[Rfam]
RNA sequence: CGGCCAGCCCCAUCUGGAAGACUAGUGAUUUUGUUGUUGUCUCGCUGCAUCAGCAACAAGUCCCAGUCUGCCGCAUGGUGUGGGCCC
Numbered sequence: 001c002g003g004c005c006a007g008c009c010c011c012a013u014c015u016g017g018a019a020g021a022c023u024a025g026u027g028a029u030u031u032u033g034u035u036g037u038u039g040u041c042u043c044g045c046u047g048c049a050u051c052a053g054c055a056a057c058a059a060g061u062c063c064c065a066g067u068c069u070g071c072c073g074c075a076u077g078g079u080g081u082g083g084g085c086c087c
Base pairs, nucleotide, nucleotide: 002086003085004084005083007081008080010078011077012076013075015073016072017071019069020068021067022066023065025064027062028061029060030059031058033057034056035055036054037053038052